The record is a 118-nucleotide RNA from Microbacterium esteraromaticum, which matches "Actinobacteria sRNA Ms_IGR-7" in Rfam. A search with the family's covariance model found it, with a score of 60 bits. The family's RNA type in Rfam is small RNA. Taxonomically the source falls in Microbacterium (Bacteria, Actinomycetes, Micrococcales, Microbacteriaceae).
[Rfam]
RNA sequence: ACGAGAUGCCUCUCUGACUGGGUGAAUAGGACCUUAGACAAGCUCUAUUCUUCCUGGUCAGAGGGGCAUUUCUAUGUCACGACGCUCGCUCAGAACCCAAGCUCAUCGGUGAAUCGAG
Number, nucleotide and partner (000 for none) at each position: 001a000002c000003g072004a071005g070006a069007u068008g067009c066010c065011u064012c063013u062014c000015u060016g059017a058018c056019u000020g054021g053022g052023u000024g050025a049026a048027u047028a000029g045030g000031a000032c042033c000034u000035u000036a000037g000038a000039c000040a000041a000042g032043c000044u000045c029046u000047a027048u026049u025050c024051u000052u022053c021054c020055u000056g018057g000058u017059c016060a015061g000062a013063g012064g011065g010066g009067c008068a007069u006070u005071u004072c003073u000074a000075u000076g000077u000078c000079a000080c000081g000082a000083c000084g000085c000086u000087c000088g000089c000090u000091c000092a000093g000094a000095a000096c000097c000098c116099a000100a114101g000102c000103u112104c111105a110106u000107c000108g000109g000110u105111g104112a103113a000114u100115c000116g098117a000118g000